[Rfam]
Nucleotides: 206
Base pairs, nucleotide, nucleotide: 027180028179029178030177031176032175034173035172036171037170038169041166042165043164045162046161047160048159049158050157051156
Number, partner (000 for none) and nucleotide at each position: 001000a002000a003000a004000g005000a006000g007000a008000c009000a010000a011000a012000c013000c014000c015000u016000g017000a018000g019000u020000u021000u022000c023000u024000g025000u026000g027180u028179c029178c030177a031176a032175c033000g034173u035172u036171u037170g038169a039000c040000c041166g042165u043164c044000c045162g046161u047160c048159u049158u050157a051156u052000u053000u054000g055000a056000a057000a058000a059000a060000a061000u062000u063000a064000u065000g066000a067000a068000a069000a070000a071000u072000u073000a074000a075000a076000a077000a078000g079000a080000u081000a082000a083000g084000u085000c086000a087000c088000g089000c090000a091000u092000a093000a094000a095000g096000u097000a098000u099000u100000g101000a102000u103000c104000a105000u106000g107000u108000u109000u110000u111000a112000u113000c114000a115000u116000c117000u118000a119000a120000c121000a122000a123000c124000a125000a126000u127000a128000a129000a130000a131000a132000u133000a134000c135000u136000a137000a138000u139000u140000a141000u142000a143000a144000a145000a146000a147000a148000a149000u150000u151000u152000c153000a154000a155000u156051a157050u158049a159048a160047g161046a162045c163000a164043g165042a166041c167000a168000a169038u170037c171036a172035a173034a174000c175032g176031u177030u178029g179028g180027a181000c182000a183000c184000a185000g186000a187000a188000a189000c190000c191000c192000a193000g194000g195000g196000u197000u198000u199000g200000u201000c202000u203000u204000u205000u206000u